RNA sequence: AUAACAUGAGGUAGUAGGUUAUGCAGUUUGGCGACAAUAUUUCGUUGCAAAGGAGAUAACUGUGUAACUUGCUGGCUCUUUUAU
Numbered sequence: 001a002u003a004a005c006a007u008g009a010g011g012u013a014g015u016a017g018g019u020u021a022u023g024c025a026g027u028u029u030g031g032c033g034a035c036a037a038u039a040u041u042u043c044g045u046u047g048c049a050a051a052g053g054a055g056a057u058a059a060c061u062g063u064g065u066a067a068c069u070u071g072c073u074g075g076c077u078c079u080u081u082u083a084u
Stems, first nucleotide, its partner, number of pairs: 001084004006079001008078003012074016032047004048055001
A member of the RNA family "let-7 microRNA precursor family" from Ciona savignyi, 84 nucleotides long.
It is one of the family's seed sequences.
Pairs were carried over by alignment from the consensus structure, which was predicted with RNAalifold.
The family has 64 seed sequences and 8,694 matches in Rfam 15.1.
On this family, see Rougvie, Nat Rev Genet 2001: "Control of developmental timing in animals".
Rfam's curators write: This family represents the microRNAs (miRNA) let-7 and mir-98. let-7 was identified from a study of developmental timing in C. elegans, and was later shown to be part of a much larger class of non-coding RNAs termed miRNAs.